Ribosomal protein L10 leader: a 136-nucleotide RNA sequence from Clostridium sp. C105KSO13. Rfam describes the family as follows. This family is a putative r-protein leader autoregulatory structure found in B. subtilis and other low-GC Gram-positive bacteria. It is located in the 5' untranslated regions of mRNAs encoding ribosomal proteins L10 and L12 (rplJ-rplL). The literature on the family includes a 1994 paper in Prog Nucleic Acid Res Mol Biol by Zengel and Lindahl, "Diverse mechanisms for regulating ribosomal protein synthesis in Escherichia coli". The family's RNA type in Rfam is cis-regulatory leader. Lineage of the source: Bacteria > Bacillota > Eubacteriales > Clostridiaceae > Clostridium.
Nucleotides: 136
Stems, first nucleotide, its partner, number of pairs: 028062006034043003096121010
Number, partner (000 for none) and nucleotide at each position: 001000u002000a003000a004000c005000a006000a007000a008000g009000c010000a011000a012000u013000u014000a015000a016000c017000u018000g019000c020000c021000g022000a023000a024000g025000a026000c027000a028062g029061c030060a031059g032058g033057u034043g035042c036041c037000g038000c039000a040000a041036g042035g043034c044000a045000u046000a047000a048000g049000u050000u051000g052000a053000a054000g055000a056000c057033g058032c059031c060030u061029g062028c063000c064000g065000a066000g067000g068000a069000a070000g071000a072000u073000u074000a075000a076000a077000u078000u079000c080000u081000u082000a083000a084000u085000g086000u087000g088000a089000a090000u091000u092000u093000u094000a095000u096121g097120u098119c099118u100117c101116u102115g103114u104113g105112u106000c107000u108000u109000u110000g111000g112105a113104u114103a115102c116101a117100g118099a119098g120097a121096c122000u123000u124000u125000u126000u127000a128000u129000u130000u131000u132000u133000g134000g135000c136000a